RNA sequence: AAAAGGAGCAAUAAUCCCCUUCUUGUUCUAUCAAGAGGGGAUUAUUGCUCCUUUUUA
Numbered sequence: 001a002a003a004a005g006g007a008g009c010a011a012u013a014a015u016c017c018c019c020u021u022c023u024u025g026u027u028c029u030a031u032c033a034a035g036a037g038g039g040g041a042u043u044a045u046u047g048c049u050c051c052u053u054u055u056u057a
Stems, first nucleotide, its partner, number of pairs: 001055016017038002021036005
Overview
This 57-nucleotide RNA from Kolkwitzia amabilis belongs to the Rfam family "Plastid-psbA-2 3UTR RNA". Plastid psbA-2 is a non-coding RNA (ncRNA) present in plastids. It was identified in inverted repeat sequences in the 3 prime untranslate region (3UTR) of photosystem II quinone-binding protein (psbA). A reference for the family is Richter et al. (2023), "Retrograde signaling in plants: A critical review focusing on the GUN pathway and beyond", Plant Commun. The organism belongs to Kolkwitzia, within Eukaryota. The family's RNA type in Rfam is cis-regulatory element. Clan: Plastid-psbA 3UTR RNA clan. Rfam's curators put it in the seed alignment.